[Rfam]
The record is a 61-nucleotide RNA, which matches "RAGATH-18 RNA" in Rfam. Rfam classes the family as a small RNA. Rfam's curators write: Actinobacteria, Firmicutes, Fusobacteria, Thermotogae (1 example).
RNA sequence: GCUGUGGAGCGUCAAACAAACCCAAGUAGUCACGACGAACGGAGAUGCUGUGAAGCAGUAA
Numbered sequence: 001g002c003u004g005u006g007g008a009g010c011g012u013c014a015a016a017c018a019a020a021c022c023c024a025a026g027u028a029g030u031c032a033c034g035a036c037g038a039a040c041g042g043a044g045a046u047g048c049u050g051u052g053a054a055g056c057a058g059u060a061a
Stems, first nucleotide, its partner, number of pairs: 001059005009048005022042002029036002